[Rfam]
RNA: Small nucleolar RNA SNORA25
Organism: Bos taurus
RNA sequence: AGGUCAUUUCAAAGAGGGCUGAUGGGACCAAAUCCAGGGGCUCUUAUCACUGUGACCAAAGAUUGAGUUCUCCAGGGGGUGUAACAGUCACUCAAUAGUGCUGUUGUUUUCCUGACGGAGAUACAAGA
Numbered sequence: 001a002g003g004u005c006a007u008u009u010c011a012a013a014g015a016g017g018g019c020u021g022a023u024g025g026g027a028c029c030a031a032a033u034c035c036a037g038g039g040g041c042u043c044u045u046a047u048c049a050c051u052g053u054g055a056c057c058a059a060a061g062a063u064u065g066a067g068u069u070c071u072c073c074a075g076g077g078g079g080u081g082u083a084a085c086a087g088u089c090a091c092u093c094a095a096u097a098g099u100g101c102u103g104u105u106g107u108u109u110u111c112c113u114g115a116c117g118g119a120g121a122u123a124c125a126a127g128a
Base pairs, nucleotide, nucleotide: 002057003056004055005054006053007052014045015044016043017042018041019040020039023037026035069121070120071119072118073117076113077112078111079110084104085103086102087101089100090099091098092097